DUF3800-I RNA: a 113-nucleotide sequence from Mycoplasma miroungirhinis. From the family's description: Actinobacteria, Firmicutes, Fusobacteria, Proteobacteria (1 example), Tenericutes (2 examples). The family's consensus secondary structure is taken from published work. Rfam classes the family as a small RNA.
RNA sequence: UAUAUUUACAGGUUGAUAAACACUGUGUACUAUAUUGGUAGAACAACCGUUUAAGCGUUAUGUGUUAACGUCAACAAUAUAGGAAGCUGCUAAUUGCAGCUUUUUUUUAUGUU
Numbered sequence: 001u002a003u004a005u006u007u008a009c010a011g012g013u014u015g016a017u018a019a020a021c022a023c024u025g026u027g028u029a030c031u032a033u034a035u036u037g038g039u040a041g042a043a044c045a046a047c048c049g050u051u052u053a054a055g056c057g058u059u060a061u062g063u064g065u066u067a068a069c070g071u072c073a074a075c076a077a078u079a080u081a082g083g084a085a086g087c088u089g090c091u092a093a094u095u096g097c098a099g100c101u102u103u104u105u106u107u108u109a110u111g112u113u
Base pairs, nucleotide, nucleotide: 007027008026009025010024011023012021013020014019030082031081032080033079034078035077038075039074041072042051043050044049055071056070057069058068059067060066083103084102085101086100087099088098089097090096